[Rfam]
RNA sequence: CGAUGAGUUAGAGGCUGCAGCUUAUAAAAGUAUAACGGACGAGAUUCUGGAAGAUUGACGACUCCGUUAGAAAGGGUAAGUUGCCGAAGUUAGGGUAUAUUCCAUGUAUAUUCUCGCUGGCGGUGUUGCCGAACAGGAACAUCACUGUCACGUUUUUUUUCAAAAACGUGGGGAGCUAUCUUCGGA
Numbered sequence: 001c002g003a004u005g006a007g008u009u010a011g012a013g014g015c016u017g018c019a020g021c022u023u024a025u026a027a028a029a030g031u032a033u034a035a036c037g038g039a040c041g042a043g044a045u046u047c048u049g050g051a052a053g054a055u056u057g058a059c060g061a062c063u064c065c066g067u068u069a070g071a072a073a074g075g076g077u078a079a080g081u082u083g084c085c086g087a088a089g090u091u092a093g094g095g096u097a098u099a100u101u102c103c104a105u106g107u108a109u110a111u112u113c114u115c116g117c118u119g120g121c122g123g124u125g126u127u128g129c130c131g132a133a134c135a136g137g138a139a140c141a142u143c144a145c146u147g148u149c150a151c152g153u154u155u156u157u158u159u160u161c162a163a164a165a166a167c168g169u170g171g172g173g174a175g176c177u178a179u180c181u182u183c184g185g186a
Base pairs, nucleotide, nucleotide: 006181007180009178010177011176017084018083019082020081021080022079023078024077025076033069034068035067036066037065038064039063088118089117090116092114093113094112095111096110097109098108099107119146120145122143123142124141125140126139127138129136148171149170150169151168152167153166154165
Shown here is a 186-nucleotide RNA sequence from Peribacillus muralis, a member of the family "Lysine riboswitch aptamer". Its family is annotated with lysine biosynthetic process in the Gene Ontology. The match comes from Rfam's covariance-model search (120 bits).